[Rfam]
RNA sequence: UGAUAGCGAUGAAGCGUGAGGUUGCUGCGCAUGGCGCAGGUUUUCCGUGGAGCGAAUGUCAAGUCAAGAUACUGGCGACAA
Number, nucleotide and partner (000 for none) at each position: 001u000002g000003a000004u000005a000006g000007c000008g000009a000010u000011g000012a000013a000014g048015c047016g046017u000018g045019a044020g043021g042022u000023u000024g000025c039026u038027g037028c036029g035030c000031a000032u000033g000034g000035c029036g028037c027038a026039g025040g000041u000042u021043u020044u019045c018046c016047g015048u014049g000050g000051a000052g000053c000054g000055a000056a000057u080058g079059u078060c077061a000062a000063g076064u075065c074066a073067a000068g000069a000070u000071a000072c000073u066074g065075g064076c063077g060078a059079c058080a057081a000
The record is an 81-nucleotide RNA sequence from Eubacteriaceae bacterium CHKCI004, which matches "S10-Clostridia ribosomal protein leader" in Rfam.
The base pairs follow the family's consensus structure, which is taken from published work.
A reference for the family is Eckert and Weinberg (2020), "Discovery of 20 novel ribosomal leader candidates in bacteria and archaea", BMC Microbiol.
By type it is a cis-regulatory leader.